Small nucleolar RNA SNORA55: a 128-nucleotide RNA from Cisticola juncidis. A search with the family's covariance model found it, with a score of 88 bits. The organism belongs to Cisticola, within Eukaryota. About the family: ACA55 is a member of the H/ACA class of snoRNA that guide the sites of modification of uridines to pseudouridines. It is annotated as an H/ACA-box small nucleolar RNA.
[Rfam]
RNA sequence: GCACCUGCCUCAUUCCCAAUCCUCGCUGUGCAGUGCAGGUCUGGGGGAUUCGGUGCUACAGCACAGCAGUGGAAAUCCAGAUGGUUCCUCACUGGUUUGGGACUCAUCUCUACACCUCUGCAACACCA
Number, nucleotide and partner (000 for none) at each position: 001g056002c055003a054004c053005c052006u000007g000008c000009c000010u000011c000012a000013u047014u046015c045016c044017c043018a042019a000020u000021c039022c038023u000024c000025g000026c000027u000028g000029u000030g000031c000032a000033g000034u000035g000036c000037a000038g022039g021040u000041c000042u018043g017044g016045g015046g014047g013048a000049u000050u000051c000052g005053g004054u003055g002056c001057u000058a000059c000060a000061g000062c000063a000064c000065a000066g121067c120068a119069g118070u000071g116072g000073a000074a000075a000076u000077c000078c000079a109080g108081a107082u106083g105084g104085u000086u102087c000088c000089u100090c099091a098092c000093u000094g000095g000096u000097u000098u091099g090100g089101g000102a086103c000104u084105c083106a082107u081108c080109u079110c000111u000112a000113c000114a000115c000116c071117u000118c069119u068120g067121c066122a000123a000124c000125a000126c000127c000128a000